[Rfam]
RNA sequence: UGUCGUAGCUGGAUUAGAGAUCGGCUAACGAUGUAUUUAAACAAACCCUGAUAAGAGGAUUUAAUUAUGUCUCUAAGUUUAGAAAAAAAAGCUGAAAUCAUUGCUGAAUUCGGUCGUGAUGCA
Numbered sequence: 001u002g003u004c005g006u007a008g009c010u011g012g013a014u015u016a017g018a019g020a021u022c023g024g025c026u027a028a029c030g031a032u033g034u035a036u037u038u039a040a041a042c043a044a045a046c047c048c049u050g051a052u053a054a055g056a057g058g059a060u061u062u063a064a065u066u067a068u069g070u071c072u073c074u075a076a077g078u079u080u081a082g083a084a085a086a087a088a089a090a091g092c093u094g095a096a097a098u099c100a101u102u103g104c105u106g107a108a109u110u111c112g113g114u115c116g117u118g119a120u121g122c123a
Stems, first nucleotide, its partner, number of pairs: 007026006047077001049075001057074003